[Rfam]
RNA sequence: UACGAUAAAGGCAAACUUGCUGAAAGGCAAGGACGCAAAGCAAUGGACCUAAAGAUAUUUCUAUGGUCGCCAUGCCACCGAAA
Number, nucleotide and partner (000 for none) at each position: 001u083002a000003c080004g079005a000006u000007a000008a000009a000010g000011g036012c035013a000014a000015a000016c031017u030018u029019g028020c027021u026022g000023a000024a000025a000026g021027g020028c019029a018030a017031g016032g000033a000034c069035g012036c011037a000038a000039a000040g075041c074042a073043a000044u072045g071046g070047a067048c066049c065050u000051a000052a000053a000054g000055a000056u000057a000058u000059u000060u000061c000062u000063a000064u000065g049066g048067u047068c000069g034070c046071c045072a044073u042074g041075c040076c000077a000078c000079c004080g003081a000082a000083a001
The record is an 83-nucleotide sequence from Paenibacillus sp. FSL H7-0331, which matches "c-di-GMP-I-GGC riboswitch aptamer" in Rfam. Rfam 15.1 lists 1,298 matches to the family in 717 species. Pairs were carried over by alignment from the consensus structure, which is taken from published work. On this family, see Smith et al., Biochemistry 2012: "Structural and biochemical characterization of linear dinucleotide analogues bound to the c-di-GMP-I aptamer".